The family of this 67-nucleotide sequence from Bacillus sp. V5-8f is "Bacillaceae-1 RNA". The family has 95 seed sequences and 5,721 matches in Rfam 15.1. The family's RNA type in Rfam is small RNA. Pairs were carried over by alignment from the consensus structure, which is taken from published work.
RNA sequence: AACAUAGAAUCAUCGACUAAGUUCGUCACGUCCUGUGACAACGUCGAUGCCAGCACAUCCAUGUGCA
Number, nucleotide and partner (000 for none) at each position: 001a000002a000003c000004a000005u000006a000007g000008a000009a000010u000011c049012a048013u047014c046015g045016a044017c043018u000019a000020a000021g000022u000023u000024c000025g039026u038027c037028a036029c035030g000031u000032c000033c000034u000035g029036u028037g027038a026039c025040a000041a000042c000043g017044u016045c015046g014047a013048u012049g011050c000051c000052a000053g066054c065055a064056c063057a000058u000059c000060c000061a000062u000063g056064u055065g054066c053067a000